[Rfam]
RNA sequence: CCAGUUGACCGGGCGGCCGCUCCGCUCAGGCGGGGAGGAAAGUCCGGGCUCCAUCGAAAUACGGUGCCGGAUAACGUCCGGCGGGGGCGACCCCAGGGAAAGUGCCACAGAAAGCAAACCGCCCGGCUCCGGCCGGGCAAGGGUGAAAGGGUGCGGUAAGAGCGCACCGCGGCCCCGGCAACGGGGACGGCAGGGUAAACCCCACCGGGAGCAAGACCAAAUAGGGAUGACGCGGGUUUAGGCCCGGCCGGUUUUCGAGGCCAGUCAUCCGGGUUGGUUGCAUGAGGGCGCCGGCAACGGCGUUCCCAGAUGAAUGGUCGCCACGUCGAGGAAACUCGGCCCUACAGAACCCGGCUUACAGGUCAACUGGCGUC
Dot-bracket structure: ((((((((((((((((((.((((((....))))))....[[[.[[[[[((((.........((((((((((.....)))))(((((....)))).)((...(((((............(((((((((....)))))))..)).......((((((.......))))))(((.(((((....))))).)).)..)))..)))))))))))))...((((......((((((...................((((.....))))..)))))).....))))......((((((((....))))))))..........)))))))...........................]]]]]]]].).))))))))))....